[Rfam]
RNA sequence: ACGAAGUGCCUUGUCGAUCGUGCCUGAUGUGAGCGUAGAGAACUCUCAUCAUCGCAGGUCACAAGGCACUUCUUCGUUCCCGGUCCUCAUACCGGCCGACGGUCACGCGGUGGAUCGAA
Numbered sequence: 001a002c003g004a005a006g007u008g009c010c011u012u013g014u015c016g017a018u019c020g021u022g023c024c025u026g027a028u029g030u031g032a033g034c035g036u037a038g039a040g041a042a043c044u045c046u047c048a049u050c051a052u053c054g055c056a057g058g059u060c061a062c063a064a065g066g067c068a069c070u071u072c073u074u075c076g077u078u079c080c081c082g083g084u085c086c087u088c089a090u091a092c093c094g095g096c097c098g099a100c101g102g103u104c105a106c107g108c109g110g111u112g113g114a115u116c117g118a119a
Stems, first nucleotide, its partner, number of pairs: 003072011016060002019057001021056003025051004032044002100117003103113003

This 119-nucleotide RNA from Streptomyces echinoruber belongs to the Rfam family "Actinobacteria sRNA Ms_IGR-7". The source organism's lineage runs through Bacteria, Bacillati, Kitasatosporales, Streptomycetaceae and Streptomyces. A reference for the family is Li et al. (2013), "Identification of small RNAs in Mycobacterium smegmatis using heterologous Hfq", RNA. Pairs were carried over by alignment from the consensus structure.